[Rfam]
RNA: RAGATH-18 RNA
Organism: Clostridium sp. BL8
RNA sequence: CCUUUGGAGCAACAUACAAACUGGAGUAGUCUUAUGAUAAAAUAGGUUGCGGUGAAUAAGGAA
Numbered sequence: 001c002c003u004u005u006g007g008a009g010c011a012a013c014a015u016a017c018a019a020a021c022u023g024g025a026g027u028a029g030u031c032u033u034a035u036g037a038u039a040a041a042a043u044a045g046g047u048u049g050c051g052g053u054g055a056a057u058a059a060g061g062a063a
Base pairs, nucleotide, nucleotide: 001061002060003059004058009050010049011048012047013046021045022044023043029038030037031036